[Rfam]
RNA sequence: CUUGACGGAGCCCAGCCACAGAGGGCGGCCGUCGGGCCGGUUCUGGCCGUAGGUGGCGAGGAUCGCCUGGGCCUC
Numbered sequence: 001c002u003u004g005a006c007g008g009a010g011c012c013c014a015g016c017c018a019c020a021g022a023g024g025g026c027g028g029c030c031g032u033c034g035g036g037c038c039g040g041u042u043c044u045g046g047c048c049g050u051a052g053g054u055g056g057c058g059a060g061g062a063u064c065g066c067c068u069g070g071g072c073c074u075c
Stems, first nucleotide, its partner, number of pairs: 016024002032070002038065002043060002047056003